Rfam assigns this 67-nucleotide RNA from Nannospalax galili to the family "mir-302 microRNA precursor family". Pairs were carried over by alignment from the consensus structure, which was predicted with RNAalifold. The family is grouped with related families in Rfam's "mir-290 clan". Lineage of the source: Eukaryota > Metazoa > Bilateria > Deuterostomia > Nannospalax. A reference for the family is Mineno et al. (2006), "The expression profile of microRNAs in mouse embryos", Nucleic Acids Res. It scores 70 bits against the family's covariance model. Its family is annotated with miRNA-mediated post-transcriptional gene silencing and RISC complex in the Gene Ontology.

RNA sequence: CCUUUACUUUAACAUGGAGGCGCUUGCUUGUCUUGGCAAGAGUAAGUGCUUCCAUGUUUCAGUGUGG
Numbered sequence: 001c002c003u004u005u006a007c008u009u010u011a012a013c014a015u016g017g018a019g020g021c022g023c024u025u026g027c028u029u030g031u032c033u034u035g036g037c038a039a040g041a042g043u044a045a046g047u048g049c050u051u052c053c054a055u056g057u058u059u060c061a062g063u064g065u066g067g
Stems, first nucleotide, its partner, number of pairs: 002067002005064004011058018